Source information: mir-252 microRNA precursor family: a 73-nucleotide RNA sequence from Pediculus humanus. Clan: mir-252 microRNA precursor family.
RNA sequence: UUUCACUUCUAAGUACUAGUGCCGCAGGAGUUUAUAUUGAAACCUCCUGCUGCUCGGGUGCUUAUCACUGAAU
Number, nucleotide and partner (000 for none) at each position: 001u000002u072003u071004c070005a069006c000007u067008u000009c000010u064011a063012a062013g061014u060015a059016c058017u057018a000019g055020u000021g000022c000023c000024g050025c049026a048027g047028g046029a045030g044031u000032u000033u000034a000035u000036a000037u000038u000039g000040a000041a000042a000043c000044c030045u029046c028047c027048u026049g025050c024051u000052g000053c000054u000055c019056g000057g017058g016059u015060g014061c013062u012063u011064a010065u000066c000067a007068c000069u005070g004071a003072a002073u000
Taxonomically the source falls in Pediculus humanus (Eukaryota, Altocrustacea, Neoptera, Paraneoptera). Pairs were carried over by alignment from the consensus structure, which was predicted with RNAalifold. The match comes from Rfam's covariance-model search (69 bits).